[Rfam]
RNA sequence: GGGGGGCAUGCGACCCUGGUGGGCGCCUCGGGCUUCAAACCCGCUGGAUGGGCAGGUGUCUGUCUGUCGAGAAGUUCGAUUCUUCUGCCUUCUC
Numbered sequence: 001g002g003g004g005g006g007c008a009u010g011c012g013a014c015c016c017u018g019g020u021g022g023g024c025g026c027c028u029c030g031g032g033c034u035u036c037a038a039a040c041c042c043g044c045u046g047g048a049u050g051g052g053c054a055g056g057u058g059u060c061u062g063u064c065u066g067u068c069g070a071g072a073a074g075u076u077c078g079a080u081u082c083u084u085c086u087g088c089c090u091u092c093u094c
Stems, first nucleotide, its partner, number of pairs: 001093008010026003014023003029043004047068007071085004
Notes: The family of this 94-nucleotide RNA from Wolinella succinogenes is "Selenocysteine transfer RNA".